RNA: glmS glucosamine-6-phosphate activated ribozyme aptamer
Organism: Butyricicoccus pullicaecorum
RNA sequence: UGCAUAUCGAUAGCGCCAGAACUGCGGAGCAGCCCGUUUCGCAGUGGACGAGGUAAGGGUUGAUCGAAAAUUCGGCGGAUGACCCUUCGGCCGCGAGUGAGCCGGUCGUUAGCAGGACGUGUAAACCCCGGGAGUGAUCCCGGAAACAGAGCGUCUUCGCAUGACCCA
Numbered sequence: 001u002g003c004a005u006a007u008c009g010a011u012a013g014c015g016c017c018a019g020a021a022c023u024g025c026g027g028a029g030c031a032g033c034c035c036g037u038u039u040c041g042c043a044g045u046g047g048a049c050g051a052g053g054u055a056a057g058g059g060u061u062g063a064u065c066g067a068a069a070a071u072u073c074g075g076c077g078g079a080u081g082a083c084c085c086u087u088c089g090g091c092c093g094c095g096a097g098u099g100a101g102c103c104g105g106u107c108g109u110u111a112g113c114a115g116g117a118c119g120u121g122u123a124a125a126c127c128c129c130g131g132g133a134g135u136g137a138u139c140c141c142g143g144a145a146a147c148a149g150a151g152c153g154u155c156u157u158c159g160c161a162u163g164a165c166c167c168a
Stems, first nucleotide, its partner, number of pairs: 021045007029037001055087005064075004088108006114157006128143006